[Rfam]
RNA sequence: UUGCCGGUGCAAGUCCGGUCACGGUAAUCGCCAGUGAGCCGUGUAGCAAAACUCGGCGCGCUGUAGUAAUACAGGGUGCUAAGCGAGUGGAUAAAGUAACUCUGAUAAAGAGUGCGAGCAAUCAUACAGACCGUAACAUAA
Number, nucleotide and partner (000 for none) at each position: 001u000002u000003g000004c000005c000006g000007g000008u000009g000010c000011a000012a000013g000014u000015c000016c000017g000018g000019u000020c043021a042022c041023g040024g039025u000026a000027a000028u000029c000030g000031c000032c000033a000034g000035u000036g000037a000038g000039c024040c023041g022042u021043g020044u000045a000046g000047c000048a000049a000050a000051a088052c087053u086054c085055g080056g079057c078058g077059c076060g000061c000062u000063g000064u071065a070066g000067u000068a000069a000070u065071a064072c000073a000074g000075g000076g059077u058078g057079c056080u055081a000082a000083g000084c000085g054086a053087g052088u051089g000090g000091a000092u000093a000094a000095a000096g115097u000098a000099a113100c112101u111102c110103u109104g000105a000106u000107a000108a000109a103110g102111a101112g100113u099114g000115c096116g000117a000118g134119c133120a000121a000122u000123c000124a000125u000126a000127c000128a000129g000130a000131c000132c000133g119134u118135a000136a000137c000138a000139u000140a000141a000
Annotation: A member of the RNA family "Group II catalytic intron D1-D4-4", 141 nucleotides long. Rfam's curators write: Group II introns are found in rRNA, tRNA and mRNA of organelles in fungi, plants and protists, and also in mRNA in bacteria.